[Rfam]
A member of the RNA family "Small nucleolar RNA SNORA29" from Clarias magur, 140 nucleotides long. For this family Rfam cites "RNomics: an experimental approach that identifies 201 candidates for novel, small, non-messenger RNAs in mouse" (Huttenhofer et al., EMBO J, 2001). A search with the family's covariance model found it, with a score of 60 bits. By type it is an H/ACA-box small nucleolar RNA. ACA29 is a member of the H/ACA class of snoRNA that guide the sites of modification of uridines to pseudouridines.
RNA sequence: UUUCCUGUUUUAGUACCAUGCAUCUGCAUGCUCUCUCAUGUGUGGCUAUGCUAACAGGAUAGAGAAAACUGCUGUCAGAGUCUGAGGAGGUCGAGGGAUAAAACCCACUGCCUCUACAUGUACUGACAGCACAUCAACAA
Dot-bracket structure: ...((((........((((((((..............)))))))).........))))...............((((...............(((................))).........)))).............